[Rfam]
RNA sequence: CUCUGUUCGUAUUAAAAGCGUUCAGGGCAGAAGGAG
Numbered sequence: 001c002u003c004u005g006u007u008c009g010u011a012u013u014a015a016a017a018g019c020g021u022u023c024a025g026g027g028c029a030g031a032a033g034g035a036g
Stems, first nucleotide, its partner, number of pairs: 001027005008020003